[Rfam]
RNA sequence: GUUGCAGAGCAAAUUUGGCAUUCUGUCCACCUCCAUGAAAAUGUGAGUUACAGCUUUUGGAGGUGGGCAGCAUGUCAAAUGGGCUCUGUAAA
Numbered sequence: 001g002u003u004g005c006a007g008a009g010c011a012a013a014u015u016u017g018g019c020a021u022u023c024u025g026u027c028c029a030c031c032u033c034c035a036u037g038a039a040a041a042u043g044u045g046a047g048u049u050a051c052a053g054c055u056u057u058u059g060g061a062g063g064u065g066g067g068c069a070g071c072a073u074g075u076c077a078a079a080u081g082g083g084c085u086c087u088g089u090a091a092a
Base pairs, nucleotide, nucleotide: 015078016077017076018075019074020073024069025068026067027066028065029064030063031062032061033060034059
Shown here is a 92-nucleotide sequence from Carpinus fangiana, a member of the family "MIR394 microRNA precursor family". Gene Ontology terms of the family: RISC complex and miRNA-mediated post-transcriptional gene silencing. The family has 19 seed sequences and 724 matches in Rfam 15.1. The source organism's lineage runs through Eukaryota, Magnoliopsida, Gunneridae, rosids and Carpinus. The family's consensus secondary structure was predicted with WAR.